RNA sequence: GCGUGCCGGGAUACCCACCCGUCAGCGAGUGUCGCCCACGGGUGUGUUUGUG
Numbered sequence: 001g002c003g004u005g006c007c008g009g010g011a012u013a014c015c016c017a018c019c020c021g022u023c024a025g026c027g028a029g030u031g032u033c034g035c036c037c038a039c040g041g042g043u044g045u046g047u048u049u050g051u052g
Stems, first nucleotide, its partner, number of pairs: 016044007025035004

Shown here is a 52-nucleotide RNA from Eilatimonas milleporae, a member of the family "ffh sRNA". The family's RNA type in Rfam is small RNA.